[Rfam]
RNA sequence: AACUUUUACGAGGUAUCAGCACUUUUCUUUCAUUAGUGGGGAAAGAAGGAUGAAAAAUACAAAGUAGCAGUAGACUUUUAAAGUUUAAAUAGGUCUGAGUUUCUGAACGUGCUCUUCCGUUUUACUUUAACCCUCCACAGAAGUAUUCUGAUCCAGUUUCACUGCUGAUCAGCAAGGGUAAGUUGAAAAG
Numbered sequence: 001a002a003c004u005u006u007u008a009c010g011a012g013g014u015a016u017c018a019g020c021a022c023u024u025u026u027c028u029u030u031c032a033u034u035a036g037u038g039g040g041g042a043a044a045g046a047a048g049g050a051u052g053a054a055a056a057a058u059a060c061a062a063a064g065u066a067g068c069a070g071u072a073g074a075c076u077u078u079u080a081a082a083g084u085u086u087a088a089a090u091a092g093g094u095c096u097g098a099g100u101u102u103c104u105g106a107a108c109g110u111g112c113u114c115u116u117c118c119g120u121u122u123u124a125c126u127u128u129a130a131c132c133c134u135c136c137a138c139a140g141a142a143g144u145a146u147u148c149u150g151a152u153c154c155a156g157u158u159u160c161a162c163u164g165c166u167g168a169u170c171a172g173c174a175a176g177g178g179u180a181a182g183u184u185g186a187a188a189a190g
Stems, first nucleotide, its partner, number of pairs: 003019002007015003029142003034137001036135001039133003042128004049121004056116002072096006097112001099110002152186002154182001157178003162172003
RNA: Connexin-43 internal ribosome entry site (IRES)
Organism: Melopsittacus undulatus